[Rfam]
RNA: Mason-Pfizer monkey virus packaging signal
RNA sequence: CGGCGCCCAACGUGGGGCUCGAGUACGAGGGACACAGUGAGGGACGCCGUCGAGGUCAGCCGGCACAGGAUUAAGAAACCUGGAGGAAAGAGCGUCGUGGGAACCUGCCACGGACUCGAGCUCCGGUAAGCGGACGGCGAAUAUGGGACAGGAAAUCAGCCAGCUCUAUGAGUUGUUCAUAGAGAGUUUAAGUAAGGCUUUAAAGGCGUGGGGAGUAAAGGUGAAAAUAAAACGAUUGUGUAAAUAUUUUGACUAUAUUCAGGAUGUCUGCCCUU
Numbered sequence: 001c002g003g004c005g006c007c008c009a010a011c012g013u014g015g016g017g018c019u020c021g022a023g024u025a026c027g028a029g030g031g032a033c034a035c036a037g038u039g040a041g042g043g044a045c046g047c048c049g050u051c052g053a054g055g056u057c058a059g060c061c062g063g064c065a066c067a068g069g070a071u072u073a074a075g076a077a078a079c080c081u082g083g084a085g086g087a088a089a090g091a092g093c094g095u096c097g098u099g100g101g102a103a104c105c106u107g108c109c110a111c112g113g114a115c116u117c118g119a120g121c122u123c124c125g126g127u128a129a130g131c132g133g134a135c136g137g138c139g140a141a142u143a144u145g146g147g148a149c150a151g152g153a154a155a156u157c158a159g160c161c162a163g164c165u166c167u168a169u170g171a172g173u174u175g176u177u178c179a180u181a182g183a184g185a186g187u188u189u190a191a192g193u194a195a196g197g198c199u200u201u202a203a204a205g206g207c208g209u210g211g212g213g214a215g216u217a218a219a220g221g222u223g224a225a226a227a228u229a230a231a232a233c234g235a236u237u238g239u240g241u242a243a244a245u246a247u248u249u250u251g252a253c254u255a256u257a258u259u260c261a262g263g264a265u266g267u268c269u270g271c272c273c274u275u
Base pairs, nucleotide, nucleotide: 006031007030008029012026013025014024037045038044081125082124083123084122085121090117091116092115096112097111098110099109100108131151133149138145139144156202158200159198160197161196209251210250211249212248213247215245216244219237220236222234223233261274262273263272265270